[Rfam]
RNA sequence: UCAGUCGGCCGGACGGCCGCUCUCGCAAACGCCGAAAGGCCGCGAGGGAGGAAAGUCCGGGCUCCAUGGACAAACGGUGCCGGAUAACGUCCGGCGGAGCGGUGAAGGCGUGAGCCCGCGCCGCUUCAGGGAAAGUGCCACAGAGAACGAACCGCCUCGUCUUCGGACGCGGUAAGGGUGAAAAGGUGCGGUAAGAGCGCACCGCGCCGGCAGCAAUGGCGGCGGCAUGGCAAACCCCACCGGGAGCAAAACCGAAUAGGAACGGCGUAGCGGUAAGUUCGCCUCAGGCGAUAACACCGCGGGGCAUGUCUGGCCUUGCCGUUCGGGUAGGUUGCUUGAGGCAGCGUGUGAACGCUGUCCCAGAGGAAUGGCCGUCACGUAUCGUCCGCGCGAGCGGCGGUGCCCUACAGAACCCGGCUUACAGGCUGGCUGACACG
Numbered sequence: 001u002c003a004g005u006c007g008g009c010c011g012g013a014c015g016g017c018c019g020c021u022c023u024c025g026c027a028a029a030c031g032c033c034g035a036a037a038g039g040c041c042g043c044g045a046g047g048g049a050g051g052a053a054a055g056u057c058c059g060g061g062c063u064c065c066a067u068g069g070a071c072a073a074a075c076g077g078u079g080c081c082g083g084a085u086a087a088c089g090u091c092c093g094g095c096g097g098a099g100c101g102g103u104g105a106a107g108g109c110g111u112g113a114g115c116c117c118g119c120g121c122c123g124c125u126u127c128a129g130g131g132a133a134a135g136u137g138c139c140a141c142a143g144a145g146a147a148c149g150a151a152c153c154g155c156c157u158c159g160u161c162u163u164c165g166g167a168c169g170c171g172g173u174a175a176g177g178g179u180g181a182a183a184a185g186g187u188g189c190g191g192u193a194a195g196a197g198c199g200c201a202c203c204g205c206g207c208c209g210g211c212a213g214c215a216a217u218g219g220c221g222g223c224g225g226c227a228u229g230g231c232a233a234a235c236c237c238c239a240c241c242g243g244g245a246g247c248a249a250a251a252c253c254g255a256a257u258a259g260g261a262a263c264g265g266c267g268u269a270g271c272g273g274u275a276a277g278u279u280c281g282c283c284u285c286a287g288g289c290g291a292u293a294a295c296a297c298c299g300c301g302g303g304g305c306a307u308g309u310c311u312g313g314c315c316u317u318g319c320c321g322u323u324c325g326g327g328u329a330g331g332u333u334g335c336u337u338g339a340g341g342c343a344g345c346g347u348g349u350g351a352a353c354g355c356u357g358u359c360c361c362a363g364a365g366g367a368a369u370g371g372c373c374g375u376c377a378c379g380u381a382u383c384g385u386c387c388g389c390g391c392g393a394g395c396g397g398c399g400g401u402g403c404c405c406u407a408c409a410g411a412a413c414c415c416g417g418c419u420u421a422c423a424g425g426c427u428g429g430c431u432g433a434c435a436c437g
Stems, first nucleotide, its partner, number of pairs: 001433010011422001012376007020048007053420003057417005062246004070311001072309001075242005080094005095129001096127009130237002135235002137231003152177002154173003158169004185203006204226001205224005211218002250333004260324006302316004340359008
About this RNA: Shown here is a 437-nucleotide sequence from Afipia sp. P52-10, a member of the family "Bacterial RNase P class A". Rfam classes the family as a ribozyme. The source organism's lineage runs through Bacteria, Pseudomonadota, Alphaproteobacteria, Hyphomicrobiales and Afipia.